[Rfam]
RNA sequence: UCGGAUGCGUUGAUCGGUCCGGCACCCAAGUUGAGGGCACCGGCUCUCCCGGUGCUCCUUGUGCUCAGAUUGCUCAUGAGGAGGAUUUGGAUAUGAGGA
Numbered sequence: 001u002c003g004g005a006u007g008c009g010u011u012g013a014u015c016g017g018u019c020c021g022g023c024a025c026c027c028a029a030g031u032u033g034a035g036g037g038c039a040c041c042g043g044c045u046c047u048c049c050c051g052g053u054g055c056u057c058c059u060u061g062u063g064c065u066c067a068g069a070u071u072g073c074u075c076a077u078g079a080g081g082a083g084g085a086u087u088u089g090g091a092u093a094u095g096a097g098g099a
Stems, first nucleotide, its partner, number of pairs: 001022006008016002035057009058097006065090007073083003
Dot-bracket structure: ((((((.((.....))))))))............(((((((((.....)))))))))((((((.(((((((.(((.....)))))))))).))))))..
The record is a 99-nucleotide RNA sequence from Sphingomonas prati, which matches "Repression of heat shock gene expression (ROSE) element" in Rfam. A reference for the family is Nocker et al. (2001), "A mRNA-based thermosensor controls expression of rhizobial heat shock genes", Nucleic Acids Res. Rfam classes the family as an RNA thermoregulator. Rfam 15.1 lists 381 matches to the family in 262 species. The base pairs follow the family's consensus structure, which is taken from published work. This family represents a 5' UTR cis-regulatory element found in heat shock mRNAs and is known as the ROSE (repression of heat shock gene expression) element. The ROSE element is a negative regulator of heat shock gene expression.